[Rfam]
Shown here is a 117-nucleotide sequence from Firmicutes bacterium CAG:103, a member of the family "FMN riboswitch aptamer (RFN element)". The literature on the family includes a 2002 paper in Nucleic Acids Res by Vitreschak et al., "Regulation of riboflavin biosynthesis and transport genes in bacteria by transcriptional and translational attenuation".
RNA sequence: AGAUGUCUUCGGGGCAGGGUGUAAUUCCCGACCGGCGGUGAUAGUCCGCGAGCCGAGCAAGGUUGAAUCGGUGCAAUUCCGAUACCGACAGUAUAGUCUGGAUGAUAGAAGAUGUUA
Numbered sequence: 001a002g003a004u005g006u007c008u009u010c011g012g013g014g015c016a017g018g019g020u021g022u023a024a025u026u027c028c029c030g031a032c033c034g035g036c037g038g039u040g041a042u043a044g045u046c047c048g049c050g051a052g053c054c055g056a057g058c059a060a061g062g063u064u065g066a067a068u069c070g071g072u073g074c075a076a077u078u079c080c081g082a083u084a085c086c087g088a089c090a091g092u093a094u095a096g097u098c099u100g101g102a103u104g105a106u107a108g109a110a111g112a113u114g115u116u117a
Stems, first nucleotide, its partner, number of pairs: 003115008017029003031097002033087002035049004044085002052063003067083005089100003